Rfam assigns this 59-nucleotide sequence to the family "Actino-ugpB RNA". Rfam's curators put it in the seed alignment. The family's consensus secondary structure is taken from published work.
RNA sequence: GUCGAUGGGAGCGCCUGGAGGCGCGGCGGCCUCCUGCUUGUCGUCGGCAGCAGCGUUAU
Numbered sequence: 001g002u003c004g005a006u007g008g009g010a011g012c013g014c015c016u017g018g019a020g021g022c023g024c025g026g027c028g029g030c031c032u033c034c035u036g037c038u039u040g041u042c043g044u045c046g047g048c049a050g051c052a053g054c055g056u057u058a059u
Stems, first nucleotide, its partner, number of pairs: 011024005027043004